[Rfam]
RNA sequence: GUGCAGGAUAAGUUACGGAUCAGCUGAUUCAGUGCUGGUUUGUCGUUCCCCCUGCAGAAAUUAAAUUGUUUCUUUACUAUCCCUGACUGUCCACAUCCCAAAACUUUCAGGGACGCUUGGAUUCAAACAU
Numbered sequence: 001g002u003g004c005a006g007g008a009u010a011a012g013u014u015a016c017g018g019a020u021c022a023g024c025u026g027a028u029u030c031a032g033u034g035c036u037g038g039u040u041u042g043u044c045g046u047u048c049c050c051c052c053u054g055c056a057g058a059a060a061u062u063a064a065a066u067u068g069u070u071u072c073u074u075u076a077c078u079a080u081c082c083c084u085g086a087c088u089g090u091c092c093a094c095a096u097c098c099c100a101a102a103a104c105u106u107u108c109a110g111g112g113a114c115g116c117u118u119g120g121a122u123u124c125a126a127a128c129a130u
Stems, first nucleotide, its partner, number of pairs: 003055005015043010082111004089104002
Small nucleolar RNA SNORA63: a 130-nucleotide sequence from Astyanax mexicanus. For this family Rfam cites "Three small nucleolar RNAs that are involved in ribosomal RNA precursor processing" (Mishra and Eliceiri, Proc Natl Acad Sci U S A, 1997). Its family is annotated with nucleolus and RNA processing in the Gene Ontology. It scores 103 bits against the family's covariance model. Taxonomically the source falls in Astyanax (Eukaryota, Gnathostomata, Euteleostomi, Characiformes). From the family's description: E3 belongs to the H/ACA class of snoRNAs and is involved in the processing of eukaryotic pre-rRNA and has regions of complementarity to 18S rRNA. E3 is encoded in introns in the gene for protein synthesis initiation factor 4AII.